tRNA: a 74-nucleotide RNA sequence from Varanus komodoensis. Rfam's curators write: Transfer RNA (tRNA) molecules are approximately 80 nucleotides in length. Rfam 15.1 lists 5,335,975 matches to the family in 14,413 species. Rfam classes the family as a transfer RNA.
RNA sequence: GGUACCAUAGCUUAGUUGGUCAAAGCACCUGUCUAGUAAACAGGAGAUCCUGGGUUCAAAUCCCAGUGGUACCU
Numbered sequence: 001g002g003u004a005c006c007a008u009a010g011c012u013u014a015g016u017u018g019g020u021c022a023a024a025g026c027a028c029c030u031g032u033c034u035a036g037u038a039a040a041c042a043g044g045a046g047a048u049c050c051u052g053g054g055u056u057c058a059a060a061u062c063c064c065a066g067u068g069g070u071a072c073c074u
Stems, first nucleotide, its partner, number of pairs: 001073007010026004028044005050066005
Dot-bracket structure: (((((((..((((.........)))).(((((.......))))).....(((((.......)))))))))))).